RNA sequence: UAGAACUGAUAUUUCGAGAGGUGGAAUGACGGAGUAACGCCCCGAAACGCCCCCUUGAUACUGCGACAGGCAAUGCGAAAAUGUAACGUUCGGUUGUCUGAAGCUCGCUGAAGUCGGCAGAGAGUAACCCAAACAGAUAAUGCUGUGGAAAGCUGUAUAGAGGUAUACGGUGUUGCCUAUAUGUCGGAGGUCUAAAAU
Numbered sequence: 001u002a003g004a005a006c007u008g009a010u011a012u013u014u015c016g017a018g019a020g021g022u023g024g025a026a027u028g029a030c031g032g033a034g035u036a037a038c039g040c041c042c043c044g045a046a047a048c049g050c051c052c053c054c055u056u057g058a059u060a061c062u063g064c065g066a067c068a069g070g071c072a073a074u075g076c077g078a079a080a081a082u083g084u085a086a087c088g089u090u091c092g093g094u095u096g097u098c099u100g101a102a103g104c105u106c107g108c109u110g111a112a113g114u115c116g117g118c119a120g121a122g123a124g125u126a127a128c129c130c131a132a133a134c135a136g137a138u139a140a141u142g143c144u145g146u147g148g149a150a151a152g153c154u155g156u157a158u159a160g161a162g163g164u165a166u167a168c169g170g171u172g173u174u175g176c177c178u179a180u181a182u183g184u185c186g187g188a189g190g191u192c193u194a195a196a197a198u
Stems, first nucleotide, its partner, number of pairs: 018052001020051004031043002034040001053190004063108004067100008076092004115186005124176005129148003135144002152171008
The record is a 198-nucleotide RNA sequence from Holtiella tumoricola, which matches "Group II catalytic intron D1-D4-5" in Rfam. On this family, see Bonen and Vogel, Trends Genet 2001: "The ins and outs of group II introns". Gene Ontology term of the family: Group II intron splicing. Pairs were carried over by alignment from the consensus structure. About the family: Group II introns are found in rRNA, tRNA and mRNA of organelles in fungi, plants and protists, and also in mRNA in bacteria.